Background
The family of this 161-nucleotide sequence from Isoptericola sediminis is "c-di-AMP riboswitch aptamer (ydaO/yuaA leader)".
[Rfam]
RNA sequence: ACCGCCCCGGAGCCGGACGACACGAACGACAGGGACGGGGGACCCACUCUCGGGCACCGCGGUGCCCUCGGGGUGAAGCCGCGCAGGGACGCCCUGCCGGCCGGGUCAGUCUCCGACCCGAACCCGACAGCUAACCCCGCAGGCGCCAGGAGAAUGUUCGA
Numbered sequence: 001a002c003c004g005c006c007c008c009g010g011a012g013c014c015g016g017a018c019g020a021c022a023c024g025a026a027c028g029a030c031a032g033g034g035a036c037g038g039g040g041g042a043c044c045c046a047c048u049c050u051c052g053g054g055c056a057c058c059g060c061g062g063u064g065c066c067c068u069c070g071g072g073g074u075g076a077a078g079c080c081g082c083g084c085a086g087g088g089a090c091g092c093c094c095u096g097c098c099g100g101c102c103g104g105g106u107c108a109g110u111c112u113c114c115g116a117c118c119c120g121a122a123c124c125c126g127a128c129a130g131c132u133a134a135c136c137c138c139g140c141a142g143g144c145g146c147c148a149g150g151a152g153a154a155u156g157u158u159c160g161a
Stems, first nucleotide, its partner, number of pairs: 003145004013033002036139005045070001071125003079100003103119004
Gene Ontology terms of the family: cyclic-di-AMP binding and regulation of gene expression. Pairs were carried over by alignment from the consensus structure.